[Rfam]
RNA: sRNA-Xcc1
RNA sequence: GUCGAGAGGGCGGAGAAUACAAUACCCGAAAGGGGAAUAAUCCCGACCGUCUGUUUGCGGUUUUCGAACCUCUCGGCACCCUAUU
Numbered sequence: 001g002u003c004g005a006g007a008g009g010g011c012g013g014a015g016a017a018u019a020c021a022a023u024a025c026c027c028g029a030a031a032g033g034g035g036a037a038u039a040a041u042c043c044c045g046a047c048c049g050u051c052u053g054u055u056u057g058c059g060g061u062u063u064u065c066g067a068a069c070c071u072c073u074c075g076g077c078a079c080c081c082u083a084u085u
Base pairs, nucleotide, nucleotide: 001077002076003075004074005073006072007071008070009069013044015042016041025034026033027032045062046061047060048059049058050057